[Rfam]
RNA sequence: UUGCAAUGAUGAAAGUCCACGCUAUGAGCUCCCUGUUUCGUGCCAGAGCCCGAAAGGGAGAACCCACUGGUGCUGGCAGGGGGUCAAGAGAUAUCCUGUCUUCUGGACAGUCUGAGCAAC
Numbered sequence: 001u002u003g004c005a006a007u008g009a010u011g012a013a014a015g016u017c018c019a020c021g022c023u024a025u026g027a028g029c030u031c032c033c034u035g036u037u038u039c040g041u042g043c044c045a046g047a048g049c050c051c052g053a054a055a056g057g058g059a060g061a062a063c064c065c066a067c068u069g070g071u072g073c074u075g076g077c078a079g080g081g082g083g084u085c086a087a088g089a090g091a092u093a094u095c096c097u098g099u100c101u102u103c104u105g106g107a108c109a110g111u112c113u114g115a116g117c118a119a120c
Stems, first nucleotide, its partner, number of pairs: 001119004